The family of this 62-nucleotide RNA from Nostoc punctiforme is "Nitrogen stress-induced RNA 1". The family has 17 seed sequences and 962 matches in Rfam 15.1. NCBI's taxonomy places the organism under Bacteria, Bacillati, Cyanophyceae, Nostocales, Nostoc punctiforme.

RNA sequence: CAAUAGAUGCACCCUGAUAACUUACUCCCCUGGUUGGCUAAAACCCACUGGGGGUUUUUUUC
Numbered sequence: 001c002a003a004u005a006g007a008u009g010c011a012c013c014c015u016g017a018u019a020a021c022u023u024a025c026u027c028c029c030c031u032g033g034u035u036g037g038c039u040a041a042a043a044c045c046c047a048c049u050g051g052g053g054g055u056u057u058u059u060u061u062c
Stems, first nucleotide, its partner, number of pairs: 004011001027054008036045002